[Rfam]
RNA sequence: UGAAAAAGAAUAGAUUUGCCGUAGACAGUGGGUGUUGUACGACUUAAUUUCCCACCGAGGUUGCGAUAUACGUGAUACUUGCGUCCUCCUUGUCUAUGAUAGGGAGGACUUUUAUUUUUACGGU
Numbered sequence: 001u002g003a004a005a006a007a008g009a010a011u012a013g014a015u016u017u018g019c020c021g022u023a024g025a026c027a028g029u030g031g032g033u034g035u036u037g038u039a040c041g042a043c044u045u046a047a048u049u050u051c052c053c054a055c056c057g058a059g060g061u062u063g064c065g066a067u068a069u070a071c072g073u074g075a076u077a078c079u080u081g082c083g084u085c086c087u088c089c090u091u092g093u094c095u096a097u098g099a100u101a102g103g104g105a106g107g108a109c110u111u112u113u114a115u116u117u118u119u120a121c122g123g124u
Stems, first nucleotide, its partner, number of pairs: 028055005034043003083109010

Rfam assigns this 124-nucleotide RNA from Peptostreptococcus anaerobius to the family "Ribosomal protein L10 leader". The organism belongs to Peptostreptococcus anaerobius, within Bacteria. The base pairs follow the family's consensus structure, which was predicted with CMfinder.